[Rfam]
RNA sequence: GGUGCAAGUUUAAGGCCACAGCAGAAGUGCUUAUUGUAACGGCCUGUUAGAUUCCAAUGAAUCUAUGAAUGCCACU
Numbered sequence: 001g002g003u004g005c006a007a008g009u010u011u012a013a014g015g016c017c018a019c020a021g022c023a024g025a026a027g028u029g030c031u032u033a034u035u036g037u038a039a040c041g042g043c044c045u046g047u048u049a050g051a052u053u054c055c056a057a058u059g060a061a062u063c064u065a066u067g068a069a070u071g072c073c074a075c076u
Stems, first nucleotide, its partner, number of pairs: 014044004020076002024072001026070001027040002048065007
A member of the RNA family "Mammalian CPEB3 ribozyme" from Alligator mississippiensis, 76 nucleotides long. The family's consensus secondary structure is taken from published work. The match comes from Rfam's covariance-model search (39 bits). From the family's description: The mammalian CPEB3 ribozyme is a self cleaving RNA located in the second intron of the CPEB3 gene which belongs to a family of genes regulating messenger RNA polyadenylation.